[Rfam]
RNA sequence: GGCCCUAUCGUCUAGCGGUUAGGACACCAGGUUCUCAUCCUGGCAACCCGGGUUCGAUUCCCGGUGGGGUCA
Numbered sequence: 001g002g003c004c005c006u007a008u009c010g011u012c013u014a015g016c017g018g019u020u021a022g023g024a025c026a027c028c029a030g031g032u033u034c035u036c037a038u039c040c041u042g043g044c045a046a047c048c049c050g051g052g053u054u055c056g057a058u059u060c061c062c063g064g065u066g067g068g069g070u071c072a
Base pairs, nucleotide, nucleotide: 001071002070003069004068005067006066007065010025011024012023013022027043028042029041030040031039048064049063050062051061052060
tRNA: a 72-nucleotide RNA from Nanosynbacter lyticus.
The match comes from Rfam's covariance-model search (60 bits).
Its Rfam clan is "tRNA clan".
Lineage of the source: Bacteria > Minisyncoccota > Nanosynbacteria > Nanosynbacteraceae > Nanosynbacter.
Gene Ontology term of the family: triplet codon-amino acid adaptor activity.